[Rfam]
Background
c-di-AMP riboswitch aptamer (ydaO/yuaA leader): a 152-nucleotide RNA sequence from Nocardioides currus. Lineage of the source: Bacteria > Actinomycetota > Actinomycetes > Nocardioidaceae > Nocardioides.

RNA sequence: GACCCCCCGUCGUCGGCCCCGGAGCCGGGGAACCACGUCCCACUUGGGGUGAAUCGCGUCCGAGGACAUGUGCCUGCACAUGACCGAGGAGGCGUAGGGCAUGUCGUGCCCGAACCCGUCAGCUCACCCGGUAGACGUACGACACAAGGGAG
Numbered sequence: 001g002a003c004c005c006c007c008c009g010u011c012g013u014c015g016g017c018c019c020c021g022g023a024g025c026c027g028g029g030g031a032a033c034c035a036c037g038u039c040c041c042a043c044u045u046g047g048g049g050u051g052a053a054u055c056g057c058g059u060c061c062g063a064g065g066a067c068a069u070g071u072g073c074c075u076g077c078a079c080a081u082g083a084c085c086g087a088g089g090a091g092g093c094g095u096a097g098g099g100c101a102u103g104u105c106g107u108g109c110c111c112g113a114a115c116c117c118g119u120c121a122g123c124u125c126a127c128c129c130g131g132u133a134g135a136c137g138u139a140c141g142a143c144a145c146a147a148g149g150g151a152g
Stems, first nucleotide, its partner, number of pairs: 005022002024132006034046002047117003055094003097111004